[Rfam]
RNA sequence: UUCACAUGGCUAGUCCUCAGAGGUCUCUUUCCCCGGGCUCUGUCCAAGUGGCAAAGGGGAGCAUAAGGUCCUUUCUCAAGAUGGACAGUCUCUUUCCACAAGGUUGAAGAAGAAGCUGGGCCUCGAGUCUACACCUGCAUCUUUUUACAACUUCUGAGUCUUGGGGACCAUGAUUGAGGGGACAAACUACAGGAAACAAAG
Numbered sequence: 001u002u003c004a005c006a007u008g009g010c011u012a013g014u015c016c017u018c019a020g021a022g023g024u025c026u027c028u029u030u031c032c033c034c035g036g037g038c039u040c041u042g043u044c045c046a047a048g049u050g051g052c053a054a055a056g057g058g059g060a061g062c063a064u065a066a067g068g069u070c071c072u073u074u075c076u077c078a079a080g081a082u083g084g085a086c087a088g089u090c091u092c093u094u095u096c097c098a099c100a101a102g103g104u105u106g107a108a109g110a111a112g113a114a115g116c117u118g119g120g121c122c123u124c125g126a127g128u129c130u131a132c133a134c135c136u137g138c139a140u141c142u143u144u145u146u147a148c149a150a151c152u153u154c155u156g157a158g159u160c161u162u163g164g165g166g167a168c169c170a171u172g173a174u175u176g177a178g179g180g181g182a183c184a185a186a187c188u189a190c191a192g193g194a195a196a197c198a199a200a201g
Stems, first nucleotide, its partner, number of pairs: 001107002004104002007101001008045002011042002015037003019030004048099004057092004061086001064083002134193004140189001151181005158168004
Rfam assigns this 201-nucleotide sequence from Spermophilus dauricus to the family "Small nucleolar RNA SNORA73 family". A search with the family's covariance model found it, with a score of 109 bits. The base pairs follow the family's consensus structure, which is taken from published work. Its Rfam clan is "snR30-U17 clan". Its family is annotated with nucleolus and RNA processing in the Gene Ontology. The organism belongs to Spermophilus, within Eukaryota. About the family: U17 (SNORA73A and SNORA73B) also known as E1 belongs to the H/ACA class of small nucleolar RNAs (snoRNAs). Vertebrate U17 is intron-encoded and ranges in length from 200-230 nucleotides, longer than most snoRNAs.